[Rfam]
RNA sequence: AACCGGCGAGAACCAUGUUAAUUAUUACACUACUUGAUUUACAUGGUUCUCACAA
Numbered sequence: 001a002a003c004c005g006g007c008g009a010g011a012a013c014c015a016u017g018u019u020a021a022u023u024a025u026u027a028c029a030c031u032a033c034u035u036g037a038u039u040u041a042c043a044u045g046g047u048u049c050u051c052a053c054a055a
Stems, first nucleotide, its partner, number of pairs: 006053001008051011020039005

Plastid-ccsA-ndhD-1 3UTR RNA: a 55-nucleotide RNA sequence.
About the family: Plastid-ccsA-ndhD-1 is a non-coding RNA (ncRNA) recognised in plastids. It was found in the three prime untranslated region (3UTR) of ccsA and ndhD genes, its 3UTR location suggests a role in transcript maturation.
Rfam classes the family as a cis-regulatory element.
Its Rfam clan is "Plastid-ccsA_ndhD 3UTR RNA clan".
The base pairs follow the family's consensus structure, which was predicted with LocARNA.